HNH endonuclease-associated RNA and ORF (HEARO) RNA: a 247-nucleotide RNA sequence from Okeania sp. KiyG1.
[Rfam]
RNA sequence: GUCAGGAACCCCAGGACUAAAAUCCAAGGGCUUGCACACUCUUGUUGCGACCGCUCCAAGAAAACAGGCCAAUACCUGACCAGCCUAAGACCUUCAAGGUCUACGUUAUCGGCAAGUGUUAAAGUUCCUACCUUGGGAUGCGUUGCCAGUCUCAUGCUCUAGAACCGGAAGGUUAAACACGCCUAGUGGGUUAAGCGAGUGCUUUCUGGAUAGUACCGACCGAUAACAUUGGCGAGGCUAACUUUAC
Numbered sequence: 001g002u003c004a005g006g007a008a009c010c011c012c013a014g015g016a017c018u019a020a021a022a023u024c025c026a027a028g029g030g031c032u033u034g035c036a037c038a039c040u041c042u043u044g045u046u047g048c049g050a051c052c053g054c055u056c057c058a059a060g061a062a063a064a065c066a067g068g069c070c071a072a073u074a075c076c077u078g079a080c081c082a083g084c085c086u087a088a089g090a091c092c093u094u095c096a097a098g099g100u101c102u103a104c105g106u107u108a109u110c111g112g113c114a115a116g117u118g119u120u121a122a123a124g125u126u127c128c129u130a131c132c133u134u135g136g137g138a139u140g141c142g143u144u145g146c147c148a149g150u151c152u153c154a155u156g157c158u159c160u161a162g163a164a165c166c167g168g169a170a171g172g173u174u175a176a177a178c179a180c181g182c183c184u185a186g187u188g189g190g191u192u193a194a195g196c197g198a199g200u201g202c203u204u205u206c207u208g209g210a211u212a213g214u215a216c217c218g219a220c221c222g223a224u225a226a227c228a229u230u231g232g233c234g235a236g237g238c239u240a241a242c243u244u245u246a247c
Base pairs, nucleotide, nucleotide: 001080002079003078004077005076006075008073010030011029015024016023031060032059033058034057083233084232085231087229088102089101090100091099092098105227106226107225108224109223110222118220119219120218126163127162132156134154135153136152137151138150139149140243143240145238146237147236165209166208167207168206169205170204171203172202173201177200178199180197181196182195184193185192186191
The match comes from Rfam's covariance-model search (144 bits). The organism belongs to Okeania, within Bacteria. A reference for the family is Weinberg et al. (2009), "Exceptional structured noncoding RNAs revealed by bacterial metagenome analysis", Nature. By type it is a non-coding RNA gene.